[Rfam]
RNA: mir-2774 microRNA precursor family
RNA sequence: AAAACAUUUGGACCGUCAGUCUACCGAGCAAUAUCACCUGUUCGGUAGAAGAUCUUCCCAUUGUCGU
Numbered sequence: 001a002a003a004a005c006a007u008u009u010g011g012a013c014c015g016u017c018a019g020u021c022u023a024c025c026g027a028g029c030a031a032u033a034u035c036a037c038c039u040g041u042u043c044g045g046u047a048g049a050a051g052a053u054c055u056u057c058c059c060a061u062u063g064u065c066g067u
Stems, first nucleotide, its partner, number of pairs: 004064003010058003015053003020049010